[Rfam]
RNA sequence: AAAACUGAUGGAGAUGGCAUUCUCCCAAAUCGCCCGCCUGGGCUGAUGAUGCCUACCGGCCU
Numbered sequence: 001a002a003a004a005c006u007g008a009u010g011g012a013g014a015u016g017g018c019a020u021u022c023u024c025c026c027a028a029a030u031c032g033c034c035c036g037c038c039u040g041g042g043c044u045g046a047u048g049a050u051g052c053c054u055a056c057c058g059g060c061c062u
Stems, first nucleotide, its partner, number of pairs: 010025004016053006032043004
The record is a 62-nucleotide RNA from Trinickia dinghuensis, which matches "Fluoride riboswitch aptamer (crcB RNA motif)" in Rfam. The source organism's lineage runs through Bacteria, Pseudomonadati, Pseudomonadota, Burkholderiaceae and Trinickia. The base pairs follow the family's consensus structure, which is taken from published work. The match comes from Rfam's covariance-model search (53 bits). On this family, see Zhao et al., Nat Chem Biol 2017: "An excited state underlies gene regulation of a transcriptional riboswitch".